[Rfam]
RNA sequence: GCGUCCGUAGCCCAACGGGAGAGGCGCCGGCCCGAGAUGCCGGAGGUCGCGGGUUCGAAUCCCGCCGGACGUA
Numbered sequence: 001g002c003g004u005c006c007g008u009a010g011c012c013c014a015a016c017g018g019g020a021g022a023g024g025c026g027c028c029g030g031c032c033c034g035a036g037a038u039g040c041c042g043g044a045g046g047u048c049g050c051g052g053g054u055u056c057g058a059a060u061c062c063c064g065c066c067g068g069a070c071g072u073a
Stems, first nucleotide, its partner, number of pairs: 001072007010025003027043005049065005
Shown here is a 73-nucleotide RNA sequence from Herbidospora galbida, a member of the family "tRNA". The family's RNA type in Rfam is transfer RNA. It scores 59 bits against the family's covariance model. Transfer RNA (tRNA) molecules are approximately 80 nucleotides in length. Their secondary structure includes four short double-helical elements and three loops (D, anti-codon, and T loops). Further hydrogen bonds mediate the characteristic L-shaped molecular structure. tRNAs have two regions of fundamental functional importance: the anti-codon, which is responsible for specific mRNA codon recognition, and the 3' end, to which the tRNAs corresponding amino acid is attached (by aminoacyl-tRNA synthetases). tRNAs cope with the degeneracy of the genetic code in two manners: having more than one tRNA (with a specific anti-codon) for a particular amino acid; and 'wobble' base-pairing, i.e. permitting non-standard base-pairing at the 3rd anti-codon position. NCBI's taxonomy places the organism under Bacteria, Actinomycetota, Streptosporangiales, Streptosporangiaceae, Herbidospora. Pairs were carried over by alignment from the consensus structure, which is taken from published work. Gene Ontology term of the family: triplet codon-amino acid adaptor activity.